[Rfam]
RNA: DUF805b RNA
Organism: Nitritalea halalkaliphila
RNA sequence: CUGGAGUAUCCCGAAAAUCCAUAAAGAGUAGGGA
Numbered sequence: 001c002u003g004g005a006g007u008a009u010c011c012c013g014a015a016a017a018u019c020c021a022u023a024a025a026g027a028g029u030a031g032g033g034a
Base pairs, nucleotide, nucleotide: 002021003020004019005018010033011032012031